This 103-nucleotide RNA from Staphylococcus aureus belongs to the Rfam family "Purine riboswitch aptamer". The organism belongs to Staphylococcus aureus, within Bacteria.

RNA sequence: GUUAAAUAAUUUACAUAAACUCAUAUAAUCUAAAGAAUAUGGCUUUAGAAGUUUCUACCAUGUUGCCUUGAACGACAUGACUAUGAGUAACAACACAAUACUA
Numbered sequence: 001g002u003u004a005a006a007u008a009a010u011u012u013a014c015a016u017a018a019a020c021u022c023a024u025a026u027a028a029u030c031u032a033a034a035g036a037a038u039a040u041g042g043c044u045u046u047a048g049a050a051g052u053u054u055c056u057a058c059c060a061u062g063u064u065g066c067c068u069u070g071a072a073c074g075a076c077a078u079g080a081c082u083a084u085g086a087g088u089a090a091c092a093a094c095a096c097a098a099u100a101c102u103a
Stems, first nucleotide, its partner, number of pairs: 019088007029049007059079007